[Rfam]
RNA: Small nucleolar RNA Z185
RNA sequence: UGGCCAAAUGAUGUUUGAAUCACCACCCAUCCAAAGCAGACCGAAUGUCUGCAUGUGCAGAGAUGUGAUCUUCUGAUGGCUA
Numbered sequence: 001u002g003g004c005c006a007a008a009u010g011a012u013g014u015u016u017g018a019a020u021c022a023c024c025a026c027c028c029a030u031c032c033a034a035a036g037c038a039g040a041c042c043g044a045a046u047g048u049c050u051g052c053a054u055g056u057g058c059a060g061a062g063a064u065g066u067g068a069u070c071u072u073c074u075g076a077u078g079g080c081u082a
Base pairs, nucleotide, nucleotide: 001082002081003080004079005078006077